[Rfam]
RNA sequence: UUAACGGUGACGUUAUGAGUGAAAGAAGUGGCUAGCAAGCUUUCUGAGAUUAUGAACAGAAACUUGAUAUAAGGCUCUGCGGUGGAUAAGGCUGCAAAACAAGUCAAAGUCCAAAGGGUAAACGUAUAACCAAAAGAGUAAAUCAAGAGUCUAUGGAAAGCAUAAGGAUGUAC
Number, nucleotide and partner (000 for none) at each position: 001u000002u015003a014004a013005c012006g011007g000008u000009g000010a000011c006012g005013u004014u003015a002016u000017g000018a000019g000020u000021g000022a000023a000024a000025g000026a000027a000028g000029u000030g000031g171032c170033u000034a000035g000036c166037a000038a000039g000040c160041u159042u158043u157044c156045u000046g154047a152048g151049a150050u149051u148052a000053u000054g000055a000056a000057c000058a000059g000060a000061a000062a000063c147064u146065u145066g144067a143068u142069a000070u000071a000072a000073g000074g139075c138076u137077c000078u134079g000080c000081g131082g130083u129084g112085g111086a110087u109088a000089a000090g105091g104092c103093u102094g000095c000096a000097a000098a000099a000100c000101a000102a093103g092104u091105c090106a000107a000108a000109g087110u086111c085112c084113a000114a000115a000116g000117g000118g000119u000120a000121a000122a000123c000124g000125u000126a000127u000128a000129a083130c082131c081132a000133a000134a078135a000136g000137a076138g075139u074140a000141a000142a068143u067144c066145a065146a064147g063148a051149g050150u049151c048152u047153a000154u046155g000156g044157a043158a042159a041160g040161c000162a000163u000164a000165a000166g036167g000168a000169u000170g032171u031172a000173c000

The record is a 173-nucleotide RNA from Solobacterium moorei, which matches "Group II catalytic intron D1-D4-3" in Rfam. It scores 97 bits against the family's covariance model. The source organism's lineage runs through Bacteria, Erysipelotrichales, Erysipelotrichaceae, Solobacterium and Solobacterium moorei.